A member of the RNA family "terC RNA" from Aliirhizobium cellulosilyticum, 58 nucleotides long. The source organism's lineage runs through Bacteria, Pseudomonadota, Hyphomicrobiales, Rhizobiaceae and Aliirhizobium. A search with the family's covariance model found it, with a score of 58 bits.
[Rfam]
RNA sequence: GACCAGGACCGGGCCCCUCUGGCAGUUCUUCCAUGAACUGUGAUGUCGGACUGGAUUG
Numbered sequence: 001g002a003c004c005a006g007g008a009c010c011g012g013g014c015c016c017c018u019c020u021g022g023c024a025g026u027u028c029u030u031c032c033a034u035g036a037a038c039u040g041u042g043a044u045g046u047c048g049g050a051c052u053g054g055a056u057u058g
Base pairs, nucleotide, nucleotide: 006052007051009049010048011047012046022041023040024039025038026037027036028035